[Rfam]
RNA sequence: AAAUCGUCCUCUAAGUUUUGCAACUGUAGCAGUUUUGGUCCCUAAGAUCAAGUUUUGGUAAAAAAAAAUGACACAUGACACUUCAAUUAGGGCGUCACGUCAGCGUAGACCGAAUCAAAAUUGAUCUUGGGGGCCAAAACUGCCACAAAUGCAAAAUUUAAGGAGCGAUUU
Numbered sequence: 001a002a003a004u005c006g007u008c009c010u011c012u013a014a015g016u017u018u019u020g021c022a023a024c025u026g027u028a029g030c031a032g033u034u035u036u037g038g039u040c041c042c043u044a045a046g047a048u049c050a051a052g053u054u055u056u057g058g059u060a061a062a063a064a065a066a067a068a069u070g071a072c073a074c075a076u077g078a079c080a081c082u083u084c085a086a087u088u089a090g091g092g093c094g095u096c097a098c099g100u101c102a103g104c105g106u107a108g109a110c111c112g113a114a115u116c117a118a119a120a121u122u123g124a125u126c127u128u129g130g131g132g133g134c135c136a137a138a139a140c141u142g143c144c145a146c147a148a149a150u151g152c153a154a155a156a157u158u159u160a161a162g163g164a165g166c167g168a169u170u171u
Base pairs, nucleotide, nucleotide: 001171002170004168005167006166007165012160013159014158015157016156017155018154019153020152021151022150025147026146027145029143030142031141032140033139034138035137036136037135038134039133040132041131042130043129044128045127073100074099076097077096078095079094081092082091

Rfam assigns this 171-nucleotide RNA from Medicago truncatula to the family "MIR2619 microRNA precursor family". It scores 118 bits against the family's covariance model. Pairs were carried over by alignment from the consensus structure, which was predicted with RNAalifold. Its family is annotated with miRNA-mediated post-transcriptional gene silencing and RISC complex in the Gene Ontology.